Annotation:
Rfam assigns this 84-nucleotide RNA to the family "S15-Methanomicrobia ribosomal protein leader". Rfam classes the family as a cis-regulatory leader. On this family, see Eckert and Weinberg, BMC Microbiol 2020: "Discovery of 20 novel ribosomal leader candidates in bacteria and archaea". It is one of the family's seed sequences.
RNA sequence: AGCACUUCUGGAUAGUGCUGGCAGAUGUAAGUCCGACGUGCGGCAACGCACGGGCCGGGGUCAUUCCCCGGCCUUUGGGAUUAC
Numbered sequence: 001a002g003c004a005c006u007u008c009u010g011g012a013u014a015g016u017g018c019u020g021g022c023a024g025a026u027g028u029a030a031g032u033c034c035g036a037c038g039u040g041c042g043g044c045a046a047c048g049c050a051c052g053g054g055c056c057g058g059g060g061u062c063a064u065u066c067c068c069c070g071g072c073c074u075u076u077g078g079g080a081u082u083a084c
Base pairs, nucleotide, nucleotide: 001019002018003017004016005015006014027084028083029082030081033079034078038051039050040049041048042047052074053073054072055071056070057069058068059067060066